This 103-nucleotide RNA sequence from Thermoactinomyces mirandus belongs to the Rfam family "Purine riboswitch aptamer". The source organism's lineage runs through Bacteria, Bacillati, Bacillota, Bacilli and Thermoactinomyces.
RNA sequence: AAUCGAUUAAGUGCCAACACUCGUAUAAUUGCAGAAAUAUGGUCUGCGAGUCUCUUACCAGGUUACCGUAAAUAACCUGACUACGAGUGAAAGGGGAAAGAAC
Numbered sequence: 001a002a003u004c005g006a007u008u009a010a011g012u013g014c015c016a017a018c019a020c021u022c023g024u025a026u027a028a029u030u031g032c033a034g035a036a037a038u039a040u041g042g043u044c045u046g047c048g049a050g051u052c053u054c055u056u057a058c059c060a061g062g063u064u065a066c067c068g069u070a071a072a073u074a075a076c077c078u079g080a081c082u083a084c085g086a087g088u089g090a091a092a093g094g095g096g097a098a099a100g101a102a103c
Stems, first nucleotide, its partner, number of pairs: 018089008029049007059079007